[Rfam]
Rfam assigns this 269-nucleotide RNA from Paenibacillus radicis to the family "Bacterial large signal recognition particle RNA". Clan: SRP clan. Taxonomically the source falls in Paenibacillus (Bacteria, Bacillota, Bacilli, Caryophanales). The match comes from Rfam's covariance-model search (197 bits).

RNA sequence: CCGUGCUAGAUGGGGAGUUAGCGGUGCCCUGUAACUCGCAAUCCGCUUUAGCGAGGUUGAAUUCCUGUCUGAGGUUAUGUCGAUGCAGGGUUUGGCACUUGAAGAUCAGUGUUGACAGUUGGGUCCUUCGCAAUGAGCGCUUGUGAACCCGGUCAGGUCCGGAAGGAAGCAGCCGUAAGCAGGUUAGUUCAUGUGCCGAGGGAGUGCCUGGCUCGAGCUGGGAAGCAAGAAUGCCGCCUGGUUCGCAUGUAUCGGGGAUAGGUGCACGG
Numbered sequence: 001c002c003g004u005g006c007u008a009g010a011u012g013g014g015g016a017g018u019u020a021g022c023g024g025u026g027c028c029c030u031g032u033a034a035c036u037c038g039c040a041a042u043c044c045g046c047u048u049u050a051g052c053g054a055g056g057u058u059g060a061a062u063u064c065c066u067g068u069c070u071g072a073g074g075u076u077a078u079g080u081c082g083a084u085g086c087a088g089g090g091u092u093u094g095g096c097a098c099u100u101g102a103a104g105a106u107c108a109g110u111g112u113u114g115a116c117a118g119u120u121g122g123g124u125c126c127u128u129c130g131c132a133a134u135g136a137g138c139g140c141u142u143g144u145g146a147a148c149c150c151g152g153u154c155a156g157g158u159c160c161g162g163a164a165g166g167a168a169g170c171a172g173c174c175g176u177a178a179g180c181a182g183g184u185u186a187g188u189u190c191a192u193g194u195g196c197c198g199a200g201g202g203a204g205u206g207c208c209u210g211g212c213u214c215g216a217g218c219u220g221g222g223a224a225g226c227a228a229g230a231a232u233g234c235c236g237c238c239u240g241g242u243u244c245g246c247a248u249g250u251a252u253c254g255g256g257g258a259u260a261g262g263u264g265c266a267c268g269g
Base pairs, nucleotide, nucleotide: 001269002268003267004266005265006264009058010057011056012030013029014028015027017025018024019023035055036054037053038052039051064262065261066260067259068258069257070256073253074252075251081245082244083243086240087239088238089237093233094232098229099228100227101226106222107221108219109218110217117213118212119211120210121209122208123207124206125202126201127200128199129198130197131193132192134191135190136189137188138187139184140183141182142181143180144179150175151174152173153172158167159166160165
About this RNA:
From the family's description: The signal recognition particle (SRP) is a universally conserved ribonucleoprotein involved in the co-translational targeting of proteins to membranes.